This 142-nucleotide RNA sequence from Paspalum vaginatum belongs to the Rfam family "Small nucleolar RNA F1/F2/snoR5a". It scores 75 bits against the family's covariance model. It is annotated as an H/ACA-box small nucleolar RNA. Its family is annotated with nucleolus and RNA processing in the Gene Ontology. About the family: This family contains F1, F2 and snoR5a sequences, all of which are members of the the H/ACA class of snoRNA that guide the sites of modification of uridines to pseudouridines. Lineage of the source: Eukaryota > Embryophyta > Mesangiospermae > Poaceae > Paspalum.

Nucleotides: 142
Base pairs, nucleotide, nucleotide: 004063005062006061007060008059009057019049020048021047022046023045024044026042027041028040029039075135076134077133078132079131091121092120094118095117098114099113100112
Number, partner (000 for none) and nucleotide at each position: 001000a002000a003000a004063u005062g006061c007060c008059a009057u010000g011000u012000g013000g014000u015000a016000u017000c018000u019049g020048a021047u022046g023045c024044a025000u026042g027041g028040u029039c030000u031000u032000g033000u034000u035000u036000c037000a038000u039029g040028g041027c042026c043000u044024u045023g046022c047021g048020u049019c050000u051000c052000g053000u054000a055000a056000g057009a058000g059008u060007g061006g062005c063004a064000g065000a066000c067000a068000g069000a070000g071000a072000u073000g074000g075135g076134c077133g078132g079131g080000u081000u082000c083000u084000u085000u086000g087000c088000g089000a090000c091121a092120c093000c094118g095117g096000c097000u098114g099113c100112u101000c102000u103000u104000c105000a106000a107000c108000c109000a110000u111000g112100a113099g114098c115000u116000u117095c118094c119000u120092g121091u122000u123000a124000c125000u126000a127000a128000u129000c130000c131079c132078c133077c134076g135075c136000g137000a138000c139000a140000u141000u142000u